[Rfam]
RNA sequence: CCUGGUCUGUGAUGACUCUUGUUUCUGGAGACUGUUGGAUGAGUCCUGCGGAUAUGGGGCUGAGGCCAGGC
Dot-bracket structure: (((((............................................................))))).
This 71-nucleotide RNA from Tachuris rubrigastra belongs to the Rfam family "Small nucleolar RNA SNORD99". The family's RNA type in Rfam is C/D-box small nucleolar RNA. The family's consensus secondary structure was predicted with RNAalifold. Lineage of the source: Eukaryota > Opisthokonta > Craniata > Teleostomi > Tachuris.